The family of this 122-nucleotide sequence from Neobacillus massiliamazoniensis is "ylbH leader". The family's RNA type in Rfam is cis-regulatory leader. For this family Rfam cites "New RNA motifs suggest an expanded scope for riboswitches in bacterial genetic control" (Barrick et al., Proc Natl Acad Sci U S A, 2004). Pairs were carried over by alignment from the consensus structure.
RNA sequence: AAAGAAAAAACCCUGCAGAUUAAAUCUGCAGGGUCCUUCUACAUCCUAAUUUAGGAUAGAAGGCAAAGGGAGAGGAGAAACCGGAGGAAGAACUUAUGGGGAAACGUAAGUCUUCUCCGCGG
Number, nucleotide and partner (000 for none) at each position: 001a000002a000003a000004g000005a000006a000007a000008a000009a000010a000011c033012c032013c031014u030015g029016c028017a027018g026019a025020u000021u000022a000023a000024a000025u019026c018027u017028g016029c015030a014031g013032g012033g011034u070035c069036c068037u067038u066039c000040u000041a000042c000043a057044u056045c055046c054047u053048a052049a000050u000051u000052u048053a047054g046055g045056a044057u043058a000059g000060a000061a000062g000063g000064c000065a000066a038067a037068g036069g035070g034071a000072g000073a000074g000075g000076a000077g000078a000079a000080a000081c000082c119083g118084g117085a116086g000087g115088a114089a113090g112091a000092a111093c110094u109095u108096a107097u000098g000099g000100g000101g000102a000103a000104a000105c000106g000107u096108a095109a094110g093111u092112c090113u089114u088115c087116u085117c084118c083119g082120c000121g000122g000